[Rfam]
RNA sequence: AACCUUAUAUCAGUAAUGUUACACUAGCAUGGUAAAAAAUUAUUCUUUGGAGUAAAAAAUGAGCGACAAAAUUAUUCAUUUGAGUGAC
Numbered sequence: 001a002a003c004c005u006u007a008u009a010u011c012a013g014u015a016a017u018g019u020u021a022c023a024c025u026a027g028c029a030u031g032g033u034a035a036a037a038a039a040u041u042a043u044u045c046u047u048u049g050g051a052g053u054a055a056a057a058a059a060u061g062a063g064c065g066a067c068a069a070a071a072u073u074a075u076u077c078a079u080u081u082g083a084g085u086g087a088c
Stems, first nucleotide, its partner, number of pairs: 008068001010066002014061002019055004024050003029047001031045002072087006
Source information
TrxA 5' UTR thermometer: an 88-nucleotide RNA sequence from Photorhabdus laumondii. Its family is annotated with regulation of translation and response to temperature stimulus in the Gene Ontology. By type it is an RNA thermoregulator. Rfam describes the family as follows. Involved in protection against oxidative stress.